The family of this 79-nucleotide RNA sequence from Todus mexicanus is "Small nucleolar RNA SNORD79". The match comes from Rfam's covariance-model search (70 bits). It is annotated as a C/D-box small nucleolar RNA. The base pairs follow the family's consensus structure, which was predicted with PFOLD. snoRNA U79 or Z22 is found in intron 7 of the gas5 gene in humans and is also present in mice. The source organism's lineage runs through Eukaryota, Bilateria, Vertebrata, Teleostomi and Todus. Its Rfam clan is "SNORD74 clan". A reference for the family is Galardi et al. (2002), "Purified box C/D snoRNPs are able to reproduce site-specific 2'-O-methylation of target RNA in vitro", Mol Cell Biol.
RNA sequence: UACUGUUUGUGAUGAUGAAUUCUAAACAAUGGGAAUCUCUCCGAAAGAGGCUGAGGAGGACUCUUGCACUGAAACAGUA
Numbered sequence: 001u002a003c004u005g006u007u008u009g010u011g012a013u014g015a016u017g018a019a020u021u022c023u024a025a026a027c028a029a030u031g032g033g034a035a036u037c038u039c040u041c042c043g044a045a046a047g048a049g050g051c052u053g054a055g056g057a058g059g060a061c062u063c064u065u066g067c068a069c070u071g072a073a074a075c076a077g078u079a
Base pairs, nucleotide, nucleotide: 001079002078003077004076005075006074007073